[Rfam]
RNA: pan motif
RNA sequence: CAGGCGGUAUCUGGUAAGAGCUGCACUGCAAAGGGUAUUAGAUGUUGUAGAAUUAGCAAGGCAAACUCUGCUCUGAGCCGUAGGGACCGAGACAGAAGG
Numbered sequence: 001c002a003g004g005c006g007g008u009a010u011c012u013g014g015u016a017a018g019a020g021c022u023g024c025a026c027u028g029c030a031a032a033g034g035g036u037a038u039u040a041g042a043u044g045u046u047g048u049a050g051a052a053u054u055a056g057c058a059a060g061g062c063a064a065a066c067u068c069u070g071c072u073c074u075g076a077g078c079c080g081u082a083g084g085g086a087c088c089g090a091g092a093c094a095g096a097a098g099g
Stems, first nucleotide, its partner, number of pairs: 001028003004024005010019002068095003071091003075087001078085002